[Rfam]
RNA sequence: UGCACCCUCUUUGGGGAGUAGCCUGCUUCCGAAACUCGGAAGAGUUCGUGUCAACAUAAUUGGCCAGAUGCCAUGGUGCGAACACCUCUCGGUUGGCGAGACCAUCGAUAUAUCCAUGCCUAAGGUCGGGCGUGUGGAUAUAUCGUGGACUCGAUAUGCCCGACCGGAGU
Dot-bracket structure: .........................(((...........))).((((((((((.......((((.....))))))))))))))......(..............................................................................).
Numbered sequence: 001u002g003c004a005c006c007c008u009c010u011u012u013g014g015g016g017a018g019u020a021g022c023c024u025g026c027u028u029c030c031g032a033a034a035c036u037c038g039g040a041a042g043a044g045u046u047c048g049u050g051u052c053a054a055c056a057u058a059a060u061u062g063g064c065c066a067g068a069u070g071c072c073a074u075g076g077u078g079c080g081a082a083c084a085c086c087u088c089u090c091g092g093u094u095g096g097c098g099a100g101a102c103c104a105u106c107g108a109u110a111u112a113u114c115c116a117u118g119c120c121u122a123a124g125g126u127c128g129g130g131c132g133u134g135u136g137g138a139u140a141u142a143u144c145g146u147g148g149a150c151u152c153g154a155u156a157u158g159c160c161c162g163a164c165c166g167g168a169g170u
Stems, first nucleotide, its partner, number of pairs: 026042003044083010061073004090169001

Rfam assigns this 170-nucleotide RNA from Alcanivorax borkumensis to the family "Manganese Mn2+ riboswitch aptamer (yybP-ykoY)". Lineage of the source: Bacteria > Pseudomonadati > Gammaproteobacteria > Alcanivoracaceae > Alcanivorax borkumensis.